[Rfam]
RNA sequence: UCUUCAUUCCACGUACUGUCUCACCGAUCAGAGUAACGAGAGAGCAUGCAAAAUGAAGAG
Numbered sequence: 001u002c003u004u005c006a007u008u009c010c011a012c013g014u015a016c017u018g019u020c021u022c023a024c025c026g027a028u029c030a031g032a033g034u035a036a037c038g039a040g041a042g043a044g045c046a047u048g049c050a051a052a053a054u055g056a057a058g059a060g
Base pairs, nucleotide, nucleotide: 001059002058003057004056005055006054007053012048013047014046016044017043019041020040021039022038
RNA: mir-8364 microRNA precursor family
Organism: Pristionchus pacificus